Annotation:
A member of the RNA family "SAM (S-adenosyl methionine) riboswitch aptamer" from Crystallibacter crystallopoietes, 123 nucleotides long. It scores 56 bits against the family's covariance model. Its Rfam clan is "SAM clan". Pairs were carried over by alignment from the consensus structure, which is taken from published work.
[Rfam]
RNA sequence: CUUCAGGAACUGCGGUCGCUAAGCUCCGACUUGGCCGCAUACCAACCCCACGCUCUCUGGGUGGUUCGGAUGACGAAGCGGCCUGCAUUCGCCGUUGGCAGAUGGUGCGGGCAAGAGCACGCG
Numbered sequence: 001c002u003u004c005a006g007g008a009a010c011u012g013c014g015g016u017c018g019c020u021a022a023g024c025u026c027c028g029a030c031u032u033g034g035c036c037g038c039a040u041a042c043c044a045a046c047c048c049c050a051c052g053c054u055c056u057c058u059g060g061g062u063g064g065u066u067c068g069g070a071u072g073a074c075g076a077a078g079c080g081g082c083c084u085g086c087a088u089u090c091g092c093c094g095u096u097g098g099c100a101g102a103u104g105g106u107g108c109g110g111g112c113a114a115g116a117g118c119a120c121g122c123g
Stems, first nucleotide, its partner, number of pairs: 001078004009040001012038006022031002041065003046061003081112008
Dot-bracket structure: ((((....(..((((((....((......)).)))))).)(((..(((..........))).))).........))))..((((((((................))))))))...........